The record is a 78-nucleotide RNA from Novosphingobium flavum, which matches "Makes More Granules Regulator RNA (mmgR)" in Rfam. The pairing is the family consensus, mapped onto this sequence. SuhB later renamed mmgR (makes more granules regulator) was a putative non-coding RNA found multiple times in the Agrobacterium tumefaciens genome and related alpha-proteobacteria. NCBI's taxonomy places the organism under Bacteria, Pseudomonadati, Pseudomonadota, Alphaproteobacteria, Novosphingobium. By type it is a small RNA.
RNA sequence: AGAAAGUGCCUUUCAGGCAUCCUCUCCCAAAACUUCCAAGGCCCGGUCGGCAACGACCGGGCUCUUUUUUUGCCUCGG
Numbered sequence: 001a002g003a004a005a006g007u008g009c010c011u012u013u014c015a016g017g018c019a020u021c022c023u024c025u026c027c028c029a030a031a032a033c034u035u036c037c038a039a040g041g042c043c044c045g046g047u048c049g050g051c052a053a054c055g056a057c058c059g060g061g062c063u064c065u066u067u068u069u070u071u072g073c074c075u076c077g078g
Base pairs, nucleotide, nucleotide: 008018009017010016011015040063041062042061043060044059045058046057047056048055